[Rfam]
A member of the RNA family "DUF3800-I RNA", 121 nucleotides long. Rfam describes the family as follows. Actinobacteria, Firmicutes, Fusobacteria, Proteobacteria (1 example), Tenericutes (2 examples). The family's consensus secondary structure is taken from published work.
RNA sequence: UUCAAUUACUGAACAAUACUGUUGCAGUGAAUAGUUUGGAUGUGAACUUAGGUUUAAGUGUAUUGUAAAUACACCGCACCAUCUAGGAGAACAGAGUUUACUCUGUUCUUUUAUUUAUUCU
Number, nucleotide and partner (000 for none) at each position: 001u000002u000003c000004a000005a000006u000007u029008a028009c027010u026011g025012a023013a022014c021015a000016a000017u000018a000019c000020u000021g014022u013023u012024g000025c011026a010027g009028u008029g007030a000031a000032u085033a084034g083035u000036u000037u081038g080039g000040a000041u078042g077043u076044g075045a054046a053047c052048u000049u000050a000051g000052g047053u046054u045055u000056a000057a000058g074059u073060g072061u071062a070063u069064u000065g000066u000067a000068a000069a063070u062071a061072c060073a059074c058075c044076g043077c042078a041079c000080c038081a037082u000083c034084u033085a032086g111087g110088a109089g108090a107091a106092c105093a104094g103095a102096g000097u000098u000099u000100a000101c000102u095103c094104u093105g092106u091107u090108c089109u088110u087111u086112u000113a000114u000115u000116u000117a000118u000119u000120c000121u000